A member of the RNA family "Metazoan signal recognition particle RNA" from Cephalopterus ornatus, 292 nucleotides long. About the family: The signal recognition particle (SRP) is a universally conserved ribonucleoprotein. A reference for the family is Wild et al. (2002), "Towards the structure of the mammalian signal recognition particle", Curr Opin Struct Biol. The base pairs follow the family's consensus structure, which is taken from published work.
[Rfam]
RNA sequence: GCUUGGCAUCCAGGUGGUGGGCGCCAUAGCCCCAGCUGCUGAGGGUGCUGAGCCCGAUGGGUUGCUUGAGUACAGGACUUCUGGGCUGCAGGGCAUGGUGCCGAGUGGGCGUUCAAGCUAAGGCUGACAUCAGUCUAGUAACCUGCAGGACACCAGCUUGGCUGAGGAGGGGUGAACUGGCCCAAGUCGGAGAUGGAGCAGGUCAAAGCUCCCGUGGCAGUCAGUAGCAGGAUCAGGUCUGUGAACAGGCCCUGCAGUGUAGCCUGAGCAACACAGAGACAUGUGAGCUCCU
Numbered sequence: 001g002c003u004u005g006g007c008a009u010c011c012a013g014g015u016g017g018u019g020g021g022c023g024c025c026a027u028a029g030c031c032c033c034a035g036c037u038g039c040u041g042a043g044g045g046u047g048c049u050g051a052g053c054c055c056g057a058u059g060g061g062u063u064g065c066u067u068g069a070g071u072a073c074a075g076g077a078c079u080u081c082u083g084g085g086c087u088g089c090a091g092g093g094c095a096u097g098g099u100g101c102c103g104a105g106u107g108g109g110c111g112u113u114c115a116a117g118c119u120a121a122g123g124c125u126g127a128c129a130u131c132a133g134u135c136u137a138g139u140a141a142c143c144u145g146c147a148g149g150a151c152a153c154c155a156g157c158u159u160g161g162c163u164g165a166g167g168a169g170g171g172g173u174g175a176a177c178u179g180g181c182c183c184a185a186g187u188c189g190g191a192g193a194u195g196g197a198g199c200a201g202g203u204c205a206a207a208g209c210u211c212c213c214g215u216g217g218c219a220g221u222c223a224g225u226a227g228c229a230g231g232a233u234c235a236g237g238u239c240u241g242u243g244a245a246c247a248g249g250c251c252c253u254g255c256a257g258u259g260u261a262g263c264c265u266g267a268g269c270a271a272c273a274c275a276g277a278g279a280c281a282u283g284u285g286a287g288c289u290c291c292u
Stems, first nucleotide, its partner, number of pairs: 001048002004026004009021003030045003050290004055285002061280003065276002070269002073266004081262003085258009096248001098246002101243001105242006112235001113231002117228004122222005128216003131160003135156002138153002142149002162166001169212005178205005187196003